[Rfam]
RNA sequence: GUCACUAACUCAACCCUAAAGGGAUUGAGCUUGUAAGAAAUUGCAAGCUGUGCUGACCAGACCACCUAGUAAUAGGUAGCCGUUAUUUGAGUCACGACACCUCGGAAUGCGUAGCUAGUUCCCCGCUCUGUCGCUGUAAGUUAAACAGUUUUAAAGUCACUGAAACAGUGCUUACAGCCUAACAAGCUCUUAUAACAGGUCGGAGCUAACAUUAC
Numbered sequence: 001g002u003c004a005c006u007a008a009c010u011c012a013a014c015c016c017u018a019a020a021g022g023g024a025u026u027g028a029g030c031u032u033g034u035a036a037g038a039a040a041u042u043g044c045a046a047g048c049u050g051u052g053c054u055g056a057c058c059a060g061a062c063c064a065c066c067u068a069g070u071a072a073u074a075g076g077u078a079g080c081c082g083u084u085a086u087u088u089g090a091g092u093c094a095c096g097a098c099a100c101c102u103c104g105g106a107a108u109g110c111g112u113a114g115c116u117a118g119u120u121c122c123c124c125g126c127u128c129u130g131u132c133g134c135u136g137u138a139a140g141u142u143a144a145a146c147a148g149u150u151u152u153a154a155a156g157u158c159a160c161u162g163a164a165a166c167a168g169u170g171c172u173u174a175c176a177g178c179c180u181a182a183c184a185a186g187c188u189c190u191u192a193u194a195a196c197a198g199g200u201c202g203g204a205g206c207u208a209a210c211a212u213u214a215c
Base pairs, nucleotide, nucleotide: 001057002056003055004054006052007051010029012026013025015022016021030047031046032045033044034043035042036041060201061200062199064077065076066075067074068073082196083195084194085193086192089189090188091187092186097131098130101125104122105121106120107119108118112208113207114206115205116204133178134177135176136175137174138173139172140171141170145169146168148166149165150164151163152162153161
RNA: HNH endonuclease-associated RNA and ORF (HEARO) RNA